[Rfam]
RNA sequence: UAUUAGGUUGAUGCAAAGGCGAUUGCGGUUUUUGCCAUUACUUUUAAUGGCAAAAAUCACAAUCGCCUUUGCAUCAACCUAAUA
Numbered sequence: 001u002a003u004u005a006g007g008u009u010g011a012u013g014c015a016a017a018g019g020c021g022a023u024u025g026c027g028g029u030u031u032u033u034g035c036c037a038u039u040a041c042u043u044u045u046a047a048u049g050g051c052a053a054a055a056a057u058c059a060c061a062a063u064c065g066c067c068u069u070u071g072c073a074u075c076a077a078c079c080u081a082a083u084a
Base pairs, nucleotide, nucleotide: 001084002083003082004081005080006079007078008077009076010075011074012073013072014071015070016069017068018067019066020065021064022063023062024061025060027058028057029056030055031054032053033052034051035050036049037048038047039046040045

The family of this 84-nucleotide RNA sequence from Colobus angolensis is "mir-548 microRNA precursor family". For this family Rfam cites "Ultra-high throughput sequencing-based small RNA discovery and discrete statistical biomarker analysis in a collection of cervical tumours and matched controls" (Witten et al., BMC Biol, 2010). Lineage of the source: Eukaryota > Metazoa > Craniata > Amniota > Colobus angolensis.